The family of this 595-nucleotide part of an RNA from Eptatretus burgeri is "Eukaryotic large subunit ribosomal RNA". The source organism's lineage runs through Eukaryota, Metazoa, Deuterostomia, Myxiniformes and Eptatretus.
RNA sequence: AAAGAAGACCCUGUUGAGCUUGACUCUAGUCCGACUUUGUGAAAUGACUUGAGAGGUGUAGGAUAAGUGGGAGCCGGCACGCCGGCGGAAGGUGAAAUACCACUACUUUUAACGUUAUUUUACUUAUUCCGUGAGACGGAGGCGGGGCGUUGCCCCUCCUUUUGGCUUUCAAGUCCCGCUCCGGCGGGUCGAUCCGGGCGGAAGACAUUGUCAGGUGGGGAGUUUGGCUGGGGCGGCACAUCUGUUAAAAGAUAACGCAGGUGUCCUAAGAUGAGCUCAACGAGAACAGAAAUCUCGUGUGGAACAAAAGGGUAAAAGCUCGUUUGAUUCUGAUUUCCAGUACGAAUACGAACCGUGAAAGCGUGGCCUAACGAUCCUUUAGACCUUCGGAAUUUGAAGCUAGAGGUGUCAGAAAAGUUACCACAGGGAUAACUGGCUUGUGGCAGCCAAGCGUUCAUAGCGACGUUGCUUUUUGAUCCUUCGAUGUCGGCUCUUCCUAUCAUUGUGAAGCAGAAUUCACCAAGUGUUGGAUUGUUCACCCACCAAUAGGGAACGUGAGCUGGGUUUAGACCGUCGUGAGACAGGUUAGUUUUAC
Numbered sequence: 001a002a003a004g005a006a007g008a009c010c011c012u013g014u015u016g017a018g019c020u021u022g023a024c025u026c027u028a029g030u031c032c033g034a035c036u037u038u039g040u041g042a043a044a045u046g047a048c049u050u051g052a053g054a055g056g057u058g059u060a061g062g063a064u065a066a067g068u069g070g071g072a073g074c075c076g077g078c079a080c081g082c083c084g085g086c087g088g089a090a091g092g093u094g095a096a097a098u099a100c101c102a103c104u105a106c107u108u109u110u111a112a113c114g115u116u117a118u119u120u121u122a123c124u125u126a127u128u129c130c131g132u133g134a135g136a137c138g139g140a141g142g143c144g145g146g147g148c149g150u151u152g153c154c155c156c157u158c159c160u161u162u163u164g165g166c167u168u169u170c171a172a173g174u175c176c177c178g179c180u181c182c183g184g185c186g187g188g189u190c191g192a193u194c195c196g197g198g199c200g201g202a203a204g205a206c207a208u209u210g211u212c213a214g215g216u217g218g219g220g221a222g223u224u225u226g227g228c229u230g231g232g233g234c235g236g237c238a239c240a241u242c243u244g245u246u247a248a249a250a251g252a253u254a255a256c257g258c259a260g261g262u263g264u265c266c267u268a269a270g271a272u273g274a275g276c277u278c279a280a281c282g283a284g285a286a287c288a289g290a291a292a293u294c295u296c297g298u299g300u301g302g303a304a305c306a307a308a309a310g311g312g313u314a315a316a317a318g319c320u321c322g323u324u325u326g327a328u329u330c331u332g333a334u335u336u337c338c339a340g341u342a343c344g345a346a347u348a349c350g351a352a353c354c355g356u357g358a359a360a361g362c363g364u365g366g367c368c369u370a371a372c373g374a375u376c377c378u379u380u381a382g383a384c385c386u387u388c389g390g391a392a393u394u395u396g397a398a399g400c401u402a403g404a405g406g407u408g409u410c411a412g413a414a415a416a417g418u419u420a421c422c423a424c425a426g427g428g429a430u431a432a433c434u435g436g437c438u439u440g441u442g443g444c445a446g447c448c449a450a451g452c453g454u455u456c457a458u459a460g461c462g463a464c465g466u467u468g469c470u471u472u473u474u475g476a477u478c479c480u481u482c483g484a485u486g487u488c489g490g491c492u493c494u495u496c497c498u499a500u501c502a503u504u505g506u507g508a509a510g511c512a513g514a515a516u517u518c519a520c521c522a523a524g525u526g527u528u529g530g531a532u533u534g535u536u537c538a539c540c541c542a543c544c545a546a547u548a549g550g551g552a553a554c555g556u557g558a559g560c561u562g563g564g565u566u567u568a569g570a571c572c573g574u575c576g577u578g579a580g581a582c583a584g585g586u587u588a589g590u591u592u593u594a595c
Stems, first nucleotide, its partner, number of pairs: 002593002010427004015423002017419005023223004030215002033212003039123010049112007066104005073086004127203005137196004144156005173190001175188003226239001227237003240262006265366002271323006277303002280298006304313002328352003333347004354363003377405006385399004436477001438475001440474001442470006451461002488563001489561004493555001494552005501526002505520005528542003532538001569587004573582003